The record is a 120-nucleotide sequence from Artemisia annua, which matches "Small nucleolar RNA snoR104" in Rfam. By type it is an H/ACA-box small nucleolar RNA. Rfam 15.1 lists 612 matches to the family in 228 species. Pairs were carried over by alignment from the consensus structure, which was predicted with WAR.
RNA sequence: GGGGAGCAUUUAAAGUUGAAAUGCUGCCUGAUAUACCCUUCCUAAAAUAAUGAAAUCUCUACUUUUCCUGCUUGUGGUACAUGAGUUGGUUCACAAGCCUCGACUAUGAGAUACAUAUGA
Numbered sequence: 001g002g003g004g005a006g007c008a009u010u011u012a013a014a015g016u017u018g019a020a021a022u023g024c025u026g027c028c029u030g031a032u033a034u035a036c037c038c039u040u041c042c043u044a045a046a047a048u049a050a051u052g053a054a055a056u057c058u059c060u061a062c063u064u065u066u067c068c069u070g071c072u073u074g075u076g077g078u079a080c081a082u083g084a085g086u087u088g089g090u091u092c093a094c095a096a097g098c099c100u101c102g103a104c105u106a107u108g109a110g111a112u113a114c115a116u117a118u119g120a
Stems, first nucleotide, its partner, number of pairs: 001029003005025007058111002070098008079090002